The family of this 58-nucleotide sequence from Homo sapiens is "mir-1538 microRNA precursor family". It is one of the family's seed sequences. The family's consensus secondary structure was predicted with RNAalifold.
RNA sequence: GGGAACAGCAGCAACAUGGGCCUCGCUUCCUGCCGGCGCGGCCCGGGCUGCUGCUGUU
Numbered sequence: 001g002g003g004a005a006c007a008g009c010a011g012c013a014a015c016a017u018g019g020g021c022c023u024c025g026c027u028u029c030c031u032g033c034c035g036g037c038g039c040g041g042c043c044c045g046g047g048c049u050g051c052u053g054c055u056g057u058u
Stems, first nucleotide, its partner, number of pairs: 001058002004055001006053007018044005024038004